[Rfam]
Description:
This 80-nucleotide RNA from Lathyrus oleraceus belongs to the Rfam family "MIR5269 microRNA precursor family". Rfam 15.1 lists 389 matches to the family in 6 species. The source organism's lineage runs through Eukaryota, Embryophyta, Spermatophyta, eudicotyledons and Lathyrus. The match comes from Rfam's covariance-model search (62 bits). Rfam links the family to the GO terms miRNA-mediated post-transcriptional gene silencing and RISC complex. Pairs were carried over by alignment from the consensus structure, which was predicted with RNAalifold.

RNA sequence: UUGGUUGAAAUAUGUGUGGGUCCCUCACUUUUGAAAUAGGUCCCACAUAAAGUGGUAGAACCCAUACAUAUUUCAACCAA
Numbered sequence: 001u002u003g004g005u006u007g008a009a010a011u012a013u014g015u016g017u018g019g020g021u022c023c024c025u026c027a028c029u030u031u032u033g034a035a036a037u038a039g040g041u042c043c044c045a046c047a048u049a050a051a052g053u054g055g056u057a058g059a060a061c062c063c064a065u066a067c068a069u070a071u072u073u074c075a076a077c078c079a080a
Stems, first nucleotide, its partner, number of pairs: 001080018023058001026054006